[Rfam]
RNA sequence: GGAGCAGUGAUGACUUCUAUACAGUAUGCAAUGAUGCAUUCCUUGGAAAUCUGAACAAAAUGAGUGGGAACUCUAUACUAUCGUCUUUGUCAAACUGAGGUCC
Numbered sequence: 001g002g003a004g005c006a007g008u009g010a011u012g013a014c015u016u017c018u019a020u021a022c023a024g025u026a027u028g029c030a031a032u033g034a035u036g037c038a039u040u041c042c043u044u045g046g047a048a049a050u051c052u053g054a055a056c057a058a059a060a061u062g063a064g065u066g067g068g069a070a071c072u073c074u075a076u077a078c079u080a081u082c083g084u085c086u087u088u089g090u091c092a093a094a095c096u097g098a099g100g101u102c103c
Base pairs, nucleotide, nucleotide: 001103002102003101005099037066038065039064040063041062043058044057045056
RNA: Small nucleolar RNA SNORD116